[Rfam]
RNA: Plastid-psbA-4 3UTR RNA
Nucleotides: 056
Stems, first nucleotide, its partner, number of pairs: 002055012017040002020037004
Number, partner (000 for none) and nucleotide at each position: 001000a002055a003054a004053a005052g006051g007050a008049g009048c010047a011046a012045u013044a014000c015000c016000u017040a018039a019000u020037c021036u022035c023034u024000u025000g026000u027000u028000c029000u030000a031000u032000a033000c034023a035022g036021a037020g038000a039018u040017u041000a042000g043000g044013u045012a046011u047010u048009g049008c050007u051006c052005c053004u054003u055002u056000u